[Rfam]
RNA sequence: GCCGCCCCAUGACAGCCGGACCUGAAAGCCUAGGCGGGUCCAGCUUGAUGUCUUUGCAGU
Numbered sequence: 001g002c003c004g005c006c007c008c009a010u011g012a013c014a015g016c017c018g019g020a021c022c023u024g025a026a027a028g029c030c031u032a033g034g035c036g037g038g039u040c041c042a043g044c045u046u047g048a049u050g051u052c053u054u055u056g057c058a059g060u
Base pairs, nucleotide, nucleotide: 001060002059004057005056014045015044016043018041019040020039021038022037023036028035029034
The family of this 60-nucleotide sequence from Vicugna pacos is "Selenocysteine insertion sequence 1". Rfam describes the family as follows. The incorporation of selenocysteine into a protein sequence is directed by an in-frame UGA codon (usually a stop codon) within the coding region of the mRNA. Selenoprotein mRNAs contain a conserved secondary structure in the 3' UTR that is required for the distinction of UGA stop from UGA selenocysteine. Its family is annotated with selenocysteine incorporation in the Gene Ontology. A search with the family's covariance model found it, with a score of 35 bits. NCBI's taxonomy places the organism under Eukaryota, Vertebrata, Teleostomi, Camelidae, Vicugna.